This 63-nucleotide RNA sequence from Ramlibacter aurantiacus belongs to the Rfam family "Betaproteobacteria toxic small RNA".
On this family, see Kimelman et al., Genome Res 2012: "A vast collection of microbial genes that are toxic to bacteria".
Rfam's curators write: Overexpression in amino aid rich medium attenuates growth, suggesting role in repressing amino acid intake and metabolism.
The family's consensus secondary structure was predicted with WAR.
The match comes from Rfam's covariance-model search (51 bits).
RNA sequence: UGUCUCCUCCACCUCUCGUUGGUGGAUUUAGCCUCCGGCUCGCAAGGGCCGGGGGCUUUUUUC
Numbered sequence: 001u002g003u004c005u006c007c008u009c010c011a012c013c014u015c016u017c018g019u020u021g022g023u024g025g026a027u028u029u030a031g032c033c034u035c036c037g038g039c040u041c042g043c044a045a046g047g048g049c050c051g052g053g054g055g056c057u058u059u060u061u062u063c
Stems, first nucleotide, its partner, number of pairs: 008026006031056003035052005